[Rfam]
This 68-nucleotide sequence from Bacillus sp. J14TS2 belongs to the Rfam family "Bacillaceae-1 RNA". NCBI's taxonomy places the organism under Bacteria, Bacillota, Caryophanales, Bacillaceae, Bacillus. A search with the family's covariance model found it, with a score of 55 bits.
RNA sequence: AACUGAGGAACUUUCGUUAAAAUCGCCCACGUCCUGUGAGCAACACGGGAGUCAGUACAUCCUGUACA
Numbered sequence: 001a002a003c004u005g006a007g008g009a010a011c012u013u014u015c016g017u018u019a020a021a022a023u024c025g026c027c028c029a030c031g032u033c034c035u036g037u038g039a040g041c042a043a044c045a046c047g048g049g050a051g052u053c054a055g056u057a058c059a060u061c062c063u064g065u066a067c068a
Base pairs, nucleotide, nucleotide: 011051012050013049014048015047016046017045026040028038029037030036055067056066057065058064
Dot-bracket structure: ..........(((((((........(.(((.....))).)....)))))))...((((.....)))).